[Rfam]
RNA sequence: UCCUUCGUGAGAUGGAAUCUAAAGGAAGCCUUCGGCAAACAUCUGGCCUGACGUACAGAAACUUGAUAUCAAGGCUUAUGAGUGUGGAUUAGUUUGCAAAACAAAACAAAGUCCUAUAGUUGUUCUGAACACUCGGAGUAAAUCAAGCAGGUAUAAGAUGGAAAGAAUACAUU
Numbered sequence: 001u002c003c004u005u006c007g008u009g010a011g012a013u014g015g016a017a018u019c020u021a022a023a024g025g026a027a028g029c030c031u032u033c034g035g036c037a038a039a040c041a042u043c044u045g046g047c048c049u050g051a052c053g054u055a056c057a058g059a060a061a062c063u064u065g066a067u068a069u070c071a072a073g074g075c076u077u078a079u080g081a082g083u084g085u086g087g088a089u090u091a092g093u094u095u096g097c098a099a100a101a102c103a104a105a106a107c108a109a110a111g112u113c114c115u116a117u118a119g120u121u122g123u124u125c126u127g128a129a130c131a132c133u134c135g136g137a138g139u140a141a142a143u144c145a146a147g148c149a150g151g152u153a154u155a156a157g158a159u160g161g162a163a164a165g166a167a168u169a170c171a172u173u
Stems, first nucleotide, its partner, number of pairs: 001016003005012002028173001032169001036165001040160005046152005062147006074139003079135007086114004092107004